[Rfam]
RNA: pan motif
Organism: Clostridium isatidis
RNA sequence: UGGUCGGUAUUCUUUUGAAACCGAACCAAAAUUAUAAUUUCUUUUUUGCCGAAUUAUAUCCAUUAUGGAAUGAGAACGGAGGG
Numbered sequence: 001u002g003g004u005c006g007g008u009a010u011u012c013u014u015u016u017g018a019a020a021c022c023g024a025a026c027c028a029a030a031a032u033u034a035u036a037a038u039u040u041c042u043u044u045u046u047u048g049c050c051g052a053a054u055u056a057u058a059u060c061c062a063u064u065a066u067g068g069a070a071u072g073a074g075a076a077c078g079g080a081g082g083g
Stems, first nucleotide, its partner, number of pairs: 001028003004024005010019002049079003054073004059069003